[Rfam]
RNA sequence: UUGUAACACGAACCGGUGCUAAAGGGUCCUGCCCAACGGCUACUGACAGGUGUUGUCAGGGCAGUACCCUUUAGCACCGGUUGGCAACACGAA
Numbered sequence: 001u002u003g004u005a006a007c008a009c010g011a012a013c014c015g016g017u018g019c020u021a022a023a024g025g026g027u028c029c030u031g032c033c034c035a036a037c038g039g040c041u042a043c044u045g046a047c048a049g050g051u052g053u054u055g056u057c058a059g060g061g062c063a064g065u066a067c068c069c070u071u072u073a074g075c076a077c078c079g080g081u082u083g084g085c086a087a088c089a090c091g092a093a
Base pairs, nucleotide, nucleotide: 003090004089009084011082012081013080014079015078016077017076018075019074020073021072022071023070024069025068026067027066029064030063032060033059036056037055043049044048
Rfam assigns this 93-nucleotide sequence from Sorghum bicolor to the family "MIR5387 microRNA precursor family". Taxonomically the source falls in Sorghum (Eukaryota, Streptophyta, Mesangiospermae, Liliopsida). Its family is annotated with RISC complex and miRNA-mediated post-transcriptional gene silencing in the Gene Ontology.